The family of this 62-nucleotide sequence from Chloroflexus aurantiacus is "Fluoride riboswitch aptamer (crcB RNA motif)". Pairs were carried over by alignment from the consensus structure, which is taken from published work. The source organism's lineage runs through Bacteria, Chloroflexia, Chloroflexales, Chloroflexineae and Chloroflexus aurantiacus. The sequence is in the family's curated seed alignment. The literature on the family includes a 2012 paper in Nature by Ren et al., "Fluoride ion encapsulation by Mg2+ ions and phosphates in a fluoride riboswitch".
[Rfam]
RNA sequence: AAUCGAUUGGGUGAUGAGGCUCACCCUCAACUGCCAUUACGGCUGAUAGCCUCUACAGGGAA
Dot-bracket structure: .........[[[[..((((((]]]].......(((.....)))....)))))).........